The record is a 72-nucleotide RNA from Trypanosoma congolense, which matches "Trypanosomatid snoRNA TB11Cs3H1" in Rfam. The organism belongs to Trypanosoma congolense, within Eukaryota. The family has 4 seed sequences and 30 matches in Rfam 15.1.
RNA sequence: AAGGCUCUCACGAACAAUCCCACUGGUGAGUGUAUCUUCUUAGUCUCCUACGUGGACCUAAGAGUGCCUAGA
Dot-bracket structure: ..(((.(((..........((((((..(((.(....).))).......)).))))......))).)))....